[Rfam]
RNA sequence: CUUGAUAACCACGGGUGCCCGGUGAAAGUCCGGGCUGAGAUGCCAUAUCACGGCGACCGUUGAACCUGAUCCGGAUAAUGCCGGCGCUAGGGAGAACAGCAUGACUAACA
Number, nucleotide and partner (000 for none) at each position: 001c000002u000003u000004g000005a000006u098007a000008a000009c000010c094011a060012c059013g058014g057015g000016u000017g035018c034019c033020c032021g031022g000023u000024g000025a000026a000027a000028g000029u000030c000031c021032g020033g019034g018035c017036u000037g000038a000039g000040a000041u000042g054043c053044c052045a000046u050047a000048u000049c000050a046051c000052g044053g043054c042055g000056a000057c014058c013059g012060u011061u000062g000063a000064a000065c091066c090067u089068g088069a000070u000071c084072c083073g082074g081075a000076u000077a000078a000079u000080g000081c074082c073083g072084g071085c000086g000087c000088u068089a067090g066091g065092g000093a000094g010095a000096a000097c000098a006099g000100c000101a000102u000103g000104a000105c000106u000107a000108a000109c000110a000

The record is a 110-nucleotide RNA from Corynebacterium occultum, which matches "TPP riboswitch aptamer (THI element)" in Rfam.